[Rfam]
RNA sequence: GAAGUCGGCCGGACAGUCGCUGCCGCUGCUUGCAGCGGGGGAGGAAAGUCCGGGCUCCAAAGGGCAGGGUGCCAGGUAACGCCUGGGGGGCGCAAGCCUACGGAAAGUGCCGCAGAAAAUAUACCGCCGAUGGCCUUUCGAGGCACAGGUAAGGGUGAAAAGGUGCGGUAAGAGCGCACCGCGCGGGUGGCAACACACCGUGGCAGGGUAAACCCCACCUGGAGCAAGACCAAAUAGGAACCCUAAAGGCGUGGCCCGCGUUGGGUUCGGGUAGGUUGCUUGAGCGCUGGAGUGAUCCAGCGCCUAGAGGAAUGGCUGUCCUCGACAGAACCCGGCUUAUAGGCCGACUUCCCAC
Number, nucleotide and partner (000 for none) at each position: 001g351002a350003a349004g348005u347006c346007g345008g344009c343010c342011g340012g320013a319014c318015a317016g316017u315018c314019g000020c041021u040022g000023c038024c037025g036026c035027u034028g033029c000030u000031u000032g000033c028034a027035g026036c025037g024038g023039g000040g021041g020042a000043g000044g000045a000046a338047a337048g336049u000050c335051c334052g333053g332054g331055c224056u223057c222058c221059a000060a000061a000062g257063g256064g255065c254066a000067g220068g219069g218070u217071g216072c086073c085074a084075g083076g082077u000078a000079a000080c000081g000082c076083c075084u074085g073086g072087g101088g099089g098090g097091c096092g000093c000094a000095a000096g091097c090098c089099u088100a000101c087102g215103g214104a000105a000106a000107g213108u212109g209110c208111c207112g000113c000114a000115g000116a000117a000118a000119a000120u000121a000122u000123a000124c154125c153126g150127c149128c148129g000130a000131u147132g146133g144134c143135c142136u141137u000138u000139c000140g000141a136142g135143g134144c133145a000146c132147a131148g128149g127150u126151a000152a000153g125154g124155g000156u000157g000158a000159a000160a000161a000162g180163g179164u178165g177166c176167g175168g000169u000170a000171a000172g000173a000174g000175c167176g166177c165178a164179c163180c162181g204182c202183g201184c200185g199186g198187g196188u195189g194190g000191c000192a000193a000194c189195a188196c187197a000198c186199c185200g184201u183202g182203g000204c181205a000206g000207g111208g110209u109210a000211a000212a108213c107214c103215c102216c071217a070218c069219c068220u067221g058222g057223a056224g055225c000226a000227a000228g277229a276230c275231c274232a000233a000234a000235u000236a000237g000238g268239a267240a266241c265242c264243c263244u000245a000246a000247a000248g262249g261250c260251g259252u258253g000254g065255c064256c063257c062258g252259c251260g250261u249262u248263g243264g242265g241266u240267u239268c238269g000270g000271g000272u000273a000274g231275g230276u229277u228278g000279c000280u000281u000282g000283a000284g303285c302286g301287c300288u299289g298290g297291a296292g000293u000294g000295a000296u291297c290298c289299a288300g287301c286302g285303c284304c000305u000306a000307g000308a000309g000310g000311a000312a000313u000314g018315g017316c016317u015318g014319u013320c012321c000322u000323c000324g000325a000326c000327a000328g000329a000330a000331c054332c053333c052334g051335g050336c048337u047338u046339a000340u011341a000342g010343g009344c008345c007346g006347a005348c004349u003350u002351c001352c000353c000354a000355c000

Bacterial RNase P class A: a 355-nucleotide RNA sequence from Marinospirillum celere. Rfam's curators write: Ribonuclease P (RNase P) is a ubiquitous endoribonuclease, found in archaea, bacteria and eukarya as well as chloroplasts and mitochondria. Lineage of the source: Bacteria > Pseudomonadati > Gammaproteobacteria > Oceanospirillales > Marinospirillum. The base pairs follow the family's consensus structure, which is taken from published work. It scores 338 bits against the family's covariance model.